[Rfam]
RNA sequence: GACCUGGUCGGAAACCAGGUCUGCCGGGGGAUGGGAGGAG
Dot-bracket structure: ((((((((.....))))))))...................